This 77-nucleotide RNA from Araneus ventricosus belongs to the Rfam family "mir-190 microRNA precursor family". The source organism's lineage runs through Eukaryota, Panarthropoda, Araneomorphae, Entelegynae and Araneus. A reference for the family is Bar et al. (2008), "MicroRNA discovery and profiling in human embryonic stem cells by deep sequencing of small RNA libraries", Stem Cells. The match comes from Rfam's covariance-model search (66 bits). Its family is annotated with miRNA-mediated post-transcriptional gene silencing and RISC complex in the Gene Ontology.
RNA sequence: UUGGCCGUUAGAUAUGUUUGAUAUUCUUGGUUGUCUCAUUUGUUUCAACCAAGAAUCAGACAUAUACUAAUGGACAU
Numbered sequence: 001u002u003g004g005c006c007g008u009u010a011g012a013u014a015u016g017u018u019u020g021a022u023a024u025u026c027u028u029g030g031u032u033g034u035c036u037c038a039u040u041u042g043u044u045u046c047a048a049c050c051a052a053g054a055a056u057c058a059g060a061c062a063u064a065u066a067c068u069a070a071u072g073g074a075c076a077u
Stems, first nucleotide, its partner, number of pairs: 005073005012065011024053002029050005